[Rfam]
RNA sequence: GCGUGCUGGCAGUGUGGUUAGCUGGUUGUGUGAUUAUCAACCAAUAUACACGACCGCUAUCAACACUGCAUUCACGA
Numbered sequence: 001g002c003g004u005g006c007u008g009g010c011a012g013u014g015u016g017g018u019u020a021g022c023u024g025g026u027u028g029u030g031u032g033a034u035u036a037u038c039a040a041c042c043a044a045u046a047u048a049c050a051c052g053a054c055c056g057c058u059a060u061c062a063a064c065a066c067u068g069c070a071u072u073c074a075c076g077a
Stems, first nucleotide, its partner, number of pairs: 002076004008069001011067005017061001019059003023056010
Shown here is a 77-nucleotide sequence from Aphidius gifuensis, a member of the family "mir-34 microRNA precursor family". The source organism's lineage runs through Eukaryota, Pterygota, Hymenoptera, Ichneumonoidea and Aphidius. It scores 55 bits against the family's covariance model. A reference for the family is Lim et al. (2003), "Vertebrate microRNA genes", Science. From the family's description: Human mir-34a was discovered computationally and later experimentally verified. The mature sequence is excised from the 5' arm of the hairpin.